[Rfam]
Shown here is a 73-nucleotide RNA sequence from Nezara viridula, a member of the family "mir-87 microRNA precursor family". NCBI's taxonomy places the organism under Eukaryota, Ecdysozoa, Altocrustacea, Dicondylia, Nezara. The family's consensus secondary structure was predicted with RNAalifold.
RNA sequence: CAUGCAUCGCCUGAUCCUUGCUUAAACCUAUGUUUUCAAAGCGAGGUGAGCAAAGUUUCAGGUGUGUGUGUGA
Numbered sequence: 001c002a003u004g005c006a007u008c009g010c011c012u013g014a015u016c017c018u019u020g021c022u023u024a025a026a027c028c029u030a031u032g033u034u035u036u037c038a039a040a041g042c043g044a045g046g047u048g049a050g051c052a053a054a055g056u057u058u059c060a061g062g063u064g065u066g067u068g069u070g071u072g073a
Stems, first nucleotide, its partner, number of pairs: 002071006008064007016055001018053002021050004027046003